This 117-nucleotide sequence from Dyadobacter koreensis belongs to the Rfam family "Group II catalytic intron D1-D4-2". A search with the family's covariance model found it, with a score of 95 bits. For this family Rfam cites "Group II introns: structure and catalytic versatility of large natural ribozymes" (Lehmann and Schmidt, Crit Rev Biochem Mol Biol, 2003). The source organism's lineage runs through Bacteria, Pseudomonadati, Bacteroidota, Spirosomataceae and Dyadobacter.
RNA sequence: GGAAGAAGGCCUUCCGGAAUCGGCUUACAGGAGCUGGUUUCAAACCGAUGUAUGCGGCUUUAAUUAAGAGUUAAGGUCGUGAGCGAUACAUGUAACAGUAGUUUUUAACUACCAGGU
Numbered sequence: 001g002g003a004a005g006a007a008g009g010c011c012u013u014c015c016g017g018a019a020u021c022g023g024c025u026u027a028c029a030g031g032a033g034c035u036g037g038u039u040u041c042a043a044a045c046c047g048a049u050g051u052a053u054g055c056g057g058c059u060u061u062a063a064u065u066a067a068g069a070g071u072u073a074a075g076g077u078c079g080u081g082a083g084c085g086a087u088a089c090a091u092g093u094a095a096c097a098g099u100a101g102u103u104u105u106u107a108a109c110u111a112c113c114a115g116g117u
Stems, first nucleotide, its partner, number of pairs: 001015005016041006023034004046116001048091006054080002057077003061073004098112005
Notes:
Rfam's curators write: Group II introns are found in rRNA, tRNA and mRNA of organelles in fungi, plants and protists, and also in mRNA in bacteria.